RNA: PyrR binding site
Organism: Oceanobacillus bengalensis
RNA sequence: AAGUCCUUUUAAAAUAGUCCAGAGAGGCUGGUAAAGGAAGCGGAUUAAUUUGAAGUGAUAUUUCAAUCCAAAACCUUUUUUCCUUCUGGAGAAAAGGUUUUUUAUU
Numbered sequence: 001a002a003g004u005c006c007u008u009u010u011a012a013a014a015u016a017g018u019c020c021a022g023a024g025a026g027g028c029u030g031g032u033a034a035a036g037g038a039a040g041c042g043g044a045u046u047a048a049u050u051u052g053a054a055g056u057g058a059u060a061u062u063u064c065a066a067u068c069c070a071a072a073a074c075c076u077u078u079u080u081u082c083c084u085u086c087u088g089g090a091g092a093a094a095a096g097g098u099u100u101u102u103u104a105u106u
Stems, first nucleotide, its partner, number of pairs: 004038006015030005046065001052064004070101014